[Rfam]
The family of this 139-nucleotide RNA from Syntrophaceticus schinkii is "Molybdenum/Tungsten riboswitch aptamer (Moco RNA motif)".
A reference for the family is Weinberg et al. (2007), "Identification of 22 candidate structured RNAs in bacteria using the CMfinder comparative genomics pipeline", Nucleic Acids Res.

RNA sequence: AUAACGUACGAUCUUCGAUCUUGUUUCCCUAAAGCUGAAGGCCAUGGGAAGCAAGACGAUGGGUUAAUAUCGACCCCGAGGGUAAAAGGGAAAACCCUUGUACCUCCCGUAUUCGGAAAGAAGAUUUUAUUGGCAGGGU
Numbered sequence: 001a002u003a004a005c006g007u008a009c010g011a012u013c014u015u016c017g018a019u020c021u022u023g024u025u026u027c028c029c030u031a032a033a034g035c036u037g038a039a040g041g042c043c044a045u046g047g048g049a050a051g052c053a054a055g056a057c058g059a060u061g062g063g064u065u066a067a068u069a070u071c072g073a074c075c076c077c078g079a080g081g082g083u084a085a086a087a088g089g090g091a092a093a094a095c096c097c098u099u100g101u102a103c104c105u106c107c108c109g110u111a112u113u114c115g116g117a118a119a120g121a122a123g124a125u126u127u128u129a130u131u132g133g134c135a136g137g138g139u
Stems, first nucleotide, its partner, number of pairs: 006130001011125006019056011034042003061077003065073001080105005086099005106116002